A member of the RNA family "SAM riboswitch aptamer (S box leader)" from Brevundimonas subvibrioides, 118 nucleotides long. Rfam's curators write: The SAM riboswitch is found upstream of a number of genes which code for proteins involved in methionine or cysteine biosynthesis in Gram-positive bacteria.

RNA sequence: CACUCAUCAAGACCGACCGAGGGAUAGGCCCUUUGACGUCGGGGCAACCAUCGGUUUCCAGCCGAACGGUGCCAACUCCUGCGAGGACCCGUUUCGGCGGUUCCGCGAGAGAUGAGUG
Numbered sequence: 001c002a003c004u005c006a007u008c009a010a011g012a013c014c015g016a017c018c019g020a021g022g023g024a025u026a027g028g029c030c031c032u033u034u035g036a037c038g039u040c041g042g043g044g045c046a047a048c049c050a051u052c053g054g055u056u057u058c059c060a061g062c063c064g065a066a067c068g069g070u071g072c073c074a075a076c077u078c079c080u081g082c083g084a085g086g087a088c089c090c091g092u093u094u095c096g097g098c099g100g101u102u103c104c105g106c107g108a109g110a111g112a113u114g115a116g117u118g
Stems, first nucleotide, its partner, number of pairs: 001118008013042005021031003025081004043073004048069002051065004077110001082107002085104003

Record summary
The match comes from Rfam's covariance-model search (85 bits). The organism belongs to Brevundimonas subvibrioides, within Bacteria.